[Rfam]
RNA sequence: GCACCUGAAUCUUUCCUAUUCCUUCCUGUGCAGUGCAGGUCUGGGGACAGUUGGUGCGACAGCACAAAUCCAGAUGGGUUGCUUUCCGCUGGUUCGGAACUCAGCUCUACACCUCUGCAACAUUG
Numbered sequence: 001g002c003a004c005c006u007g008a009a010u011c012u013u014u015c016c017u018a019u020u021c022c023u024u025c026c027u028g029u030g031c032a033g034u035g036c037a038g039g040u041c042u043g044g045g046g047a048c049a050g051u052u053g054g055u056g057c058g059a060c061a062g063c064a065c066a067a068a069u070c071c072a073g074a075u076g077g078g079u080u081g082c083u084u085u086c087c088g089c090u091g092g093u094u095c096g097g098a099a100c101u102c103a104g105c106u107c108u109a110c111a112c113c114u115c116u117g118c119a120a121c122a123u124u125g
Base pairs, nucleotide, nucleotide: 001057002056003055004054005053013047014046015045016044017043018042021039022038062118063117064116072106073105075103076102077101078100079099086097087096088095
RNA: Small nucleolar RNA SNORA55